[Rfam]
RNA: Acido-Lenti-1 RNA
Organism: Roseimicrobium sp. ORNL1
RNA sequence: CCCGGCCUUGAAAGGCCGGGCUAAGAUACGGCCGUCGCUCCGCGACU
Numbered sequence: 001c002c003c004g005g006c007c008u009u010g011a012a013a014g015g016c017c018g019g020g021c022u023a024a025g026a027u028a029c030g031g032c033c034g035u036c037g038c039u040c041c042g043c044g045a046c047u
Base pairs, nucleotide, nucleotide: 001020002019003018004017005016006015007014008013034046035045036044037043038042